A member of the RNA family "Clostridiales-1 RNA", 160 nucleotides long. By type it is a small RNA. It is one of the family's seed sequences.

RNA sequence: UGAAAGUCCUGAACGGCAGCCAUGAAUGAGUCAUGCUUGCAUGAACGAAUUCAUGGAUAUCGGGCAGGCUAAACUGUAUGAGUAAGCAGGGCAAUCGCCCGGAUUACGAAUGCAGUUGGCAGUUACGUGAGUGCCAUAGGCACGGAGUAACUGACUUUCA
Numbered sequence: 001u002g003a004a005a006g007u008c009c010u011g012a013a014c015g016g017c018a019g020c021c022a023u024g025a026a027u028g029a030g031u032c033a034u035g036c037u038u039g040c041a042u043g044a045a046c047g048a049a050u051u052c053a054u055g056g057a058u059a060u061c062g063g064g065c066a067g068g069c070u071a072a073a074c075u076g077u078a079u080g081a082g083u084a085a086g087c088a089g090g091g092c093a094a095u096c097g098c099c100c101g102g103a104u105u106a107c108g109a110a111u112g113c114a115g116u117u118g119g120c121a122g123u124u125a126c127g128u129g130a131g132u133g134c135c136a137u138a139g140g141c142a143c144g145g146a147g148u149a150a151c152u153g154a155c156u157u158u159c160a
Stems, first nucleotide, its partner, number of pairs: 001160007008068004015061002018058001020056008030046001032043004072117008082107004089100004120153007131143004